The family of this 134-nucleotide RNA from Ornithorhynchus anatinus is "Small nucleolar RNA SNORA22".

[Rfam]
RNA sequence: UCGCACAGCGAACACCCAAGUGUGCUCUCUAGUUCUCUUGGUCUAAAUUCUGUGCUAAAGCAAACGUUGUUCUUUUCCUCUGCAAUGAAAGGAGUCCUUUUCCUUUUAUAUGUAUUCAGAAGGACAGCACACGG
Numbered sequence: 001u002c003g004c005a006c007a008g009c010g011a012a013c014a015c016c017c018a019a020g021u022g023u024g025c026u027c028u029c030u031a032g033u034u035c036u037c038u039u040g041g042u043c044u045a046a047a048u049u050c051u052g053u054g055c056u057a058a059a060g061c062a063a064a065c066g067u068u069g070u071u072c073u074u075u076u077c078c079u080c081u082g083c084a085a086u087g088a089a090a091g092g093a094g095u096c097c098u099u100u101u102c103c104u105u106u107u108a109u110a111u112g113u114a115u116u117c118a119g120a121a122g123g124a125c126a127g128c129a130c131a132c133g134g
Stems, first nucleotide, its partner, number of pairs: 003055006010049001016041005022035001024033003057073001059071004079120004083112002087107007
The family has 31 seed sequences and 883 matches in Rfam 15.1. The base pairs follow the family's consensus structure, which was predicted with RNAfold. The source organism's lineage runs through Eukaryota, Gnathostomata, Teleostomi, Euteleostomi and Ornithorhynchus. It is annotated as an H/ACA-box small nucleolar RNA. From the family's description: ACA22 is a member of the H/ACA class of snoRNA that guide the sites of modification of uridines to pseudouridines.